[Rfam]
Small nucleolar RNA SNORD75: a 72-nucleotide sequence from Astyanax mexicanus. The family has 5 seed sequences and 767 matches in Rfam 15.1. A search with the family's covariance model found it, with a score of 65 bits. The family's RNA type in Rfam is C/D-box small nucleolar RNA. Gene Ontology terms of the family: RNA processing and nucleolus. The literature on the family includes a 2002 paper in Mol Cell Biol by Galardi et al., "Purified box C/D snoRNPs are able to reproduce site-specific 2'-O-methylation of target RNA in vitro". The family's consensus secondary structure was predicted with RNAalifold. Taxonomically the source falls in Astyanax (Eukaryota, Deuterostomia, Osteoglossocephalai, Ostariophysi).
RNA sequence: AGCCUGUGAUGAAUAACAAUGAAGUAUAAGAGUAGUGGACAGAAGUGGUUUCUGAAAUUAAGUUCUGAGGCU
Number, nucleotide and partner (000 for none) at each position: 001a072002g071003c070004c069005u000006g000007u000008g000009a000010u000011g000012a000013a000014u000015a000016a000017c000018a000019a000020u000021g000022a000023a000024g000025u000026a000027u000028a000029a000030g000031a000032g000033u000034a000035g000036u000037g000038g000039a000040c000041a000042g000043a000044a000045g000046u000047g000048g000049u000050u000051u000052c000053u000054g000055a000056a000057a000058u000059u000060a000061a000062g000063u000064u000065c000066u000067g000068a000069g004070g003071c002072u001